About this RNA: A member of the RNA family "Small nucleolar RNA SNORA71" from Bos grunniens, 132 nucleotides long. The family's consensus secondary structure was predicted with PFOLD. The source organism's lineage runs through Eukaryota, Metazoa, Euteleostomi, Ruminantia and Bos. A reference for the family is Ganot et al. (1997), "The family of box ACA small nucleolar RNAs is defined by an evolutionarily conserved secondary structure and ubiquitous sequence elements essential for RNA accumulation", Genes Dev. The members of this family belong to the H/ACA class of snoRNAs which bind a number of proteins (including dyskerin, Gar1p and Nop10p) to form snoRNP complexes. This class of snoRNAs are thought to guide the sites of modification of uridines to pseudouridines by forming direct base pairing interactions with substrate RNAs.

RNA sequence: UCCUGCAUGGAAAGUAAUUGUGGGCUGCCUGUGCCCUGGUCAUUGAUACUGGAGGGAGAGGAGUUGCUGAAAGAUCUUUCCCAAUGUUUGAAGAGCCUAGCCAUCCAUUCCAAACCCUGGAGUUUUCACACA
Number, nucleotide and partner (000 for none) at each position: 001u056002c055003c054004u053005g000006c051007a050008u000009g000010g000011a000012a000013a044014g043015u042016a000017a040018u039019u038020g037021u000022g036023g035024g034025c033026u000027g000028c000029c000030u000031g000032u000033g025034c024035c023036c022037u020038g019039g018040u017041c000042a015043u014044u013045g000046a000047u000048a000049c000050u007051g006052g000053a004054g003055g002056g001057a000058g000059a000060g000061g000062a000063g000064u000065u000066g129067c000068u128069g127070a126071a125072a124073g123074a000075u000076c000077u000078u000079u000080c000081c000082c000083a000084a000085u000086g115087u114088u113089u112090g111091a109092a108093g000094a000095g105096c000097c000098u000099a000100g000101c000102c000103a000104u000105c095106c000107a000108u092109u091110c000111c090112a089113a088114a087115c086116c000117c000118u000119g000120g000121a000122g000123u073124u072125u071126u070127c069128a068129c066130a000131c000132a000